[Rfam]
The record is a 96-nucleotide RNA sequence from Devosia geojensis, which matches "Bacterial small signal recognition particle RNA" in Rfam.

RNA sequence: GGGAGGUUGGCGCGGACGUGUUCCUCGCCAACCGGGUCAGGUCCGGAAGGAAGCAGCCCCAACGAGACCUUCACGGGUCGUUGCCAGCCUCCUUUC
Numbered sequence: 001g002g003g004a005g006g007u008u009g010g011c012g013c014g015g016a017c018g019u020g021u022u023c024c025u026c027g028c029c030a031a032c033c034g035g036g037u038c039a040g041g042u043c044c045g046g047a048a049g050g051a052a053g054c055a056g057c058c059c060c061a062a063c064g065a066g067a068c069c070u071u072c073a074c075g076g077g078u079c080g081u082u083g084c085c086a087g088c089c090u091c092c093u094u095u096c
Stems, first nucleotide, its partner, number of pairs: 002092005008083005013076001017075004024066004034059004042051003
Rfam's curators write: The signal recognition particle (SRP) is a universally conserved ribonucleoprotein involved in the co-translational targeting of proteins to membranes.